The record is a 115-nucleotide RNA from Medicago truncatula, which matches "MIR2593 microRNA precursor family" in Rfam.
Rfam links the family to the GO terms miRNA-mediated post-transcriptional gene silencing and RISC complex.
Lineage of the source: Eukaryota > Magnoliopsida > fabids > Fabales > Medicago.

[Rfam]
RNA sequence: UUAUAAGCAAUUUUUCACUUUUUAGGUUCAUUGAAUAAAUGAUGUAUGUAGUCUUUAUUAUAAACCAUAUACAUCAUUUAUUUAAUGAAUCUAAAAAGUGAAAAGUUGCUUAUAA
Numbered sequence: 001u002u003a004u005a006a007g008c009a010a011u012u013u014u015u016c017a018c019u020u021u022u023u024a025g026g027u028u029c030a031u032u033g034a035a036u037a038a039a040u041g042a043u044g045u046a047u048g049u050a051g052u053c054u055u056u057a058u059u060a061u062a063a064a065c066c067a068u069a070u071a072c073a074u075c076a077u078u079u080a081u082u083u084a085a086u087g088a089a090u091c092u093a094a095a096a097a098g099u100g101a102a103a104a105g106u107u108g109c110u111u112a113u114a115a
Stems, first nucleotide, its partner, number of pairs: 002114006009107005015101011027089018049067001051065002